[Rfam]
RNA sequence: GUAAUGCUACGGCAGUACAGUACUGUUGCAAUAUAUAUAUAUAUAUAUAUAUAUAUAUAAUGCAACAAUACUGUACUGCCGUAGCAUUAC
Numbered sequence: 001g002u003a004a005u006g007c008u009a010c011g012g013c014a015g016u017a018c019a020g021u022a023c024u025g026u027u028g029c030a031a032u033a034u035a036u037a038u039a040u041a042u043a044u045a046u047a048u049a050u051a052u053a054u055a056u057a058u059a060a061u062g063c064a065a066c067a068a069u070a071c072u073g074u075a076c077u078g079c080c081g082u083a084g085c086a087u088u089a090c
Stems, first nucleotide, its partner, number of pairs: 001090003005086003011080008022069001024067006

Rfam assigns this 90-nucleotide RNA from Ipomoea nil to the family "mir-16 microRNA precursor family". On this family, see Calin et al., Proc Natl Acad Sci U S A 2002: "Frequent deletions and down-regulation of micro- RNA genes miR15 and miR16 at 13q14 in chronic lymphocytic leukemia". Lineage of the source: Eukaryota > Magnoliopsida > Pentapetalae > Ipomoeeae > Ipomoea. The base pairs follow the family's consensus structure, which was predicted with PFOLD.